[Rfam]
RNA sequence: ACCCGACCAUCGCGCGCGGCAGGAGCGGGGGAACCAGGUAGGCCGCUGUUCCGGAUCAUUUCCGGCGCAGCUAGGGGUGAAGCCGAACCCGUGCACCGCACGUACGGCCGGACAUCUCCAGUCCGAACCCGACAGCUCACCUCGCAGGCGCCGGAGAGGAAUU
Numbered sequence: 001a002c003c004c005g006a007c008c009a010u011c012g013c014g015c016g017c018g019g020c021a022g023g024a025g026c027g028g029g030g031g032a033a034c035c036a037g038g039u040a041g042g043c044c045g046c047u048g049u050u051c052c053g054g055a056u057c058a059u060u061u062c063c064g065g066c067g068c069a070g071c072u073a074g075g076g077g078u079g080a081a082g083c084c085g086a087a088c089c090c091g092u093g094c095a096c097c098g099c100a101c102g103u104a105c106g107g108c109c110g111g112a113c114a115u116c117u118c119c120a121g122u123c124c125g126a127a128c129c130c131g132a133c134a135g136c137u138c139a140c141c142u143c144g145c146a147g148g149c150g151c152c153g154g155a156g157a158g159g160a161a162u163u
Base pairs, nucleotide, nucleotide: 003023004022025145026144027143028142029141030140035074075130076129077128083107084106085105110124111123112122113121
Dot-bracket structure: ..((.................)).((((((....(......................................)(((.....(((...................)))..((((.......))))...))).........))))))..................

A member of the RNA family "c-di-AMP riboswitch aptamer (ydaO/yuaA leader)" from Streptomyces sp. W1SF4, 163 nucleotides long.
The pairing is the family consensus, mapped onto this sequence.